RNA sequence: AAUGAUGAUGACACUUUGUUUCGGUCCCAUAUGAAGAAAUGAUUACUUUAUCCUAAUGCUGACAUU
Numbered sequence: 001a002a003u004g005a006u007g008a009u010g011a012c013a014c015u016u017u018g019u020u021u022c023g024g025u026c027c028c029a030u031a032u033g034a035a036g037a038a039a040u041g042a043u044u045a046c047u048u049u050a051u052c053c054u055a056a057u058g059c060u061g062a063c064a065u066u
Stems, first nucleotide, its partner, number of pairs: 001066004
Annotation: The record is a 66-nucleotide sequence from Naja naja, which matches "Small nucleolar RNA SNORD73" in Rfam. A search with the family's covariance model found it, with a score of 50 bits. For this family Rfam cites "A novel snoRNA (U73) is encoded within the introns of the human and mouse ribosomal protein S3a genes" (Rebane et al., Gene, 1998). NCBI's taxonomy places the organism under Eukaryota, Gnathostomata, Squamata, Colubroidea, Naja. Its family is annotated with RNA processing and nucleolus in the Gene Ontology. It is annotated as a C/D-box small nucleolar RNA. The base pairs follow the family's consensus structure, which was predicted with PFOLD.